The family of this 74-nucleotide sequence from Crocodylus porosus is "Mammalian CPEB3 ribozyme".
[Rfam]
RNA sequence: CUUGUAUGCUAGGCCAUAGCAGAAGUACUCCUGGCAGGACCCUGUCAGAUUCCAAUGAAUCUGUGAAUUCUGCU
Number, nucleotide and partner (000 for none) at each position: 001c000002u000003u000004g000005u000006a000007u000008g000009c000010u000011a000012g041013g040014c038015c037016a000017u000018a074019g073020c072021a071022g070023a069024a068025g000026u036027a000028c000029u000030c000031c000032u000033g000034g000035c000036a026037g015038g014039a000040c013041c012042c000043u000044g000045u000046c063047a062048g061049a060050u059051u058052c057053c000054a000055a000056u000057g052058a051059a050060u049061c048062u047063g046064u000065g000066a000067a000068u024069u023070c022071u021072g020073c019074u018
Annotation:
The organism belongs to Crocodylus, within Eukaryota. For this family Rfam cites "A genomewide search for ribozymes reveals an HDV-like sequence in the human CPEB3 gene" (Salehi-Ashtiani et al., Science, 2006).